[Rfam]
The record is a 306-nucleotide sequence from Pan troglodytes, which matches "7SK RNA" in Rfam. 7SK was discovered as an abundant small nuclear RNA in the mid-70s but a possible function has only recently been suggested.

RNA sequence: GGAUGUGAGGGUGAUCUGGCUGCGACAUCUGUCACCCCAUUGAUCGCCAGGGUUGAUUCGGCUGAUUGGCUGGCUAGGCAGGUGUCCCCUUCCUCCCUCACCGCUCCAUGUGCGUCCCUCCCGAAACUGUGCGCUCGGUCGAAGAGGACAGCCAUCCCCGAUAGAGGAGGACCGGUCUUCAGUCAAGGGUAUACGAGUAGCUGCGCUCCCCUGCUAGAACCUCCAAACGAGCUCUCAAGGUCCAUUUGUAGGAGAACGUAGGGUAGUCAUCCCAUCACCCUUUGCUCUCUUUUCGGACUUGGCCCG
Numbered sequence: 001g002g003a004u005g006u007g008a009g010g011g012u013g014a015u016c017u018g019g020c021u022g023c024g025a026c027a028u029c030u031g032u033c034a035c036c037c038c039a040u041u042g043a044u045c046g047c048c049a050g051g052g053u054u055g056a057u058u059c060g061g062c063u064g065a066u067u068g069g070c071u072g073g074c075u076a077g078g079c080a081g082g083u084g085u086c087c088c089c090u091u092c093c094u095c096c097c098u099c100a101c102c103g104c105u106c107c108a109u110g111u112g113c114g115u116c117c118c119u120c121c122c123g124a125a126a127c128u129g130u131g132c133g134c135u136c137g138g139u140c141g142a143a144g145a146g147g148a149c150a151g152c153c154a155u156c157c158c159c160g161a162u163a164g165a166g167g168a169g170g171a172c173c174g175g176u177c178u179u180c181a182g183u184c185a186a187g188g189g190u191a192u193a194c195g196a197g198u199a200g201c202u203g204c205g206c207u208c209c210c211c212u213g214c215u216a217g218a219a220c221c222u223c224c225a226a227a228c229g230a231g232c233u234c235u236c237a238a239g240g241u242c243c244a245u246u247u248g249u250a251g252g253a254g255a256a257c258g259u260a261g262g263g264u265a266g267u268c269a270u271c272c273c274a275u276c277a278c279c280c281u282u283u284g285c286u287c288u289c290u291u292u293u294c295g296g297a298c299u300u301g302g303c304c305c306g
Stems, first nucleotide, its partner, number of pairs: 001107003005101007013092002018089002024086010035073002037069003043066003046062003115170002117167004121138004127133001139161003146157003200271001202269001206266002209263006221254004227249005

Taxonomically the source falls in Pan (Eukaryota, Metazoa, Deuterostomia, Mammalia). For this family Rfam cites "Transcription: surprising role for an elusive small nuclear RNA" (Blencowe, Curr Biol, 2002). Rfam classes the family as a non-coding RNA gene.